[Rfam]
RNA sequence: ACAGUCUGAGAAUUAUCCUAGGAGUGUCAUUUGUCUGGGGGGAGAGAACUGUGUCUACAGUAUUGUGGUACGUUAAGCUUAUUGCCUGCUCUGUUUGUGACGGUGUAAUAAAACCCAAGUGCUCACAAUC
Numbered sequence: 001a002c003a004g005u006c007u008g009a010g011a012a013u014u015a016u017c018c019u020a021g022g023a024g025u026g027u028c029a030u031u032u033g034u035c036u037g038g039g040g041g042g043a044g045a046g047a048a049c050u051g052u053g054u055c056u057a058c059a060g061u062a063u064u065g066u067g068g069u070a071c072g073u074u075a076a077g078c079u080u081a082u083u084g085c086c087u088g089c090u091c092u093g094u095u096u097g098u099g100a101c102g103g104u105g106u107a108a109u110a111a112a113a114c115c116c117a118a119g120u121g122c123u124c125a126c127a128a129u130c
Stems, first nucleotide, its partner, number of pairs: 006051001008049001013043002016040001021036003067123001069121003073117001079111005087102002089099001
RNA: Small nucleolar RNA ACA64